This 54-nucleotide RNA from Muraenolepis orangiensis belongs to the Rfam family "UnaL2 LINE 3' element". Rfam describes the family as follows. The eel long interspersed element (LINE) UnaL2 and its partner short interspersed element (SINE) share a conserved 3' tail containing a stem-loop that is critical for their retrotransposition. Presumably, the first step of retrotransposition is the recognition of their 3' tails by UnaL2-encoded reverse transcriptase.

RNA sequence: GAAACACACUAUUGUAAGACGCUUUGGAUAAAAGCAUCUGCUAAAUCACUGCUA
Dot-bracket structure: ............((((....(((((.....)))))...))).)...........
About this RNA: It scores 59 bits against the family's covariance model. Taxonomically the source falls in Muraenolepis (Eukaryota, Deuterostomia, Craniata, Neopterygii). The base pairs follow the family's consensus structure, which is taken from published work.